[Rfam]
RNA sequence: GGGCUGGCAUUAGCUGAGCAUUUCCUUCAAUACAAGCCUUUGUUUGCCAACUAAUCUUGCUUGAGAGAGUGACUUGAGACCUACAGGUGCCCUCCUGCCUUAAA
Numbered sequence: 001g002g003g004c005u006g007g008c009a010u011u012a013g014c015u016g017a018g019c020a021u022u023u024c025c026u027u028c029a030a031u032a033c034a035a036g037c038c039u040u041u042g043u044u045u046g047c048c049a050a051c052u053a054a055u056c057u058u059g060c061u062u063g064a065g066a067g068a069g070u071g072a073c074u075u076g077a078g079a080c081c082u083a084c085a086g087g088u089g090c091c092c093u094c095c096u097g098c099c100u101u102a103a104a
Base pairs, nucleotide, nucleotide: 002099003098004097006095007094013088014087015086018084020082026078027077028076029075030074
Vault RNA: a 104-nucleotide RNA from Pipistrellus kuhlii. It scores 39 bits against the family's covariance model. Rfam's curators write: This family of RNAs are found as part of the enigmatic vault ribonucleoprotein complex. The complex consists of a major vault protein (MVP), two minor vault proteins (VPARP and TEP1), and several small untranslated RNA molecules. It has been suggested that the vault complex is involved in drug resistance. Rfam classes the family as a non-coding RNA gene. Taxonomically the source falls in Pipistrellus (Eukaryota, Eumetazoa, Sarcopterygii, Mammalia).